[Rfam]
RNA sequence: GCUUCUAUGAGAUAUGUUUGAUAUAUUUGGUGGUGACCUUAACCUUUCCACCAAUUAUCAAACAUGUCAGCAUAGCGGC
Numbered sequence: 001g002c003u004u005c006u007a008u009g010a011g012a013u014a015u016g017u018u019u020g021a022u023a024u025a026u027u028u029g030g031u032g033g034u035g036a037c038c039u040u041a042a043c044c045u046u047u048c049c050a051c052c053a054a055u056u057a058u059c060a061a062a063c064a065u066g067u068c069a070g071c072a073u074a075g076c077g078g079c
Stems, first nucleotide, its partner, number of pairs: 005075005011068013029052005
A member of the RNA family "mir-190 microRNA precursor family" from Mizuhopecten yessoensis, 79 nucleotides long. It scores 68 bits against the family's covariance model. Gene Ontology terms of the family: miRNA-mediated post-transcriptional gene silencing and RISC complex. The literature on the family includes a 2006 paper in Nucleic Acids Res by Kloosterman et al., "Cloning and expression of new microRNAs from zebrafish". Pairs were carried over by alignment from the consensus structure, which was predicted with RNAalifold.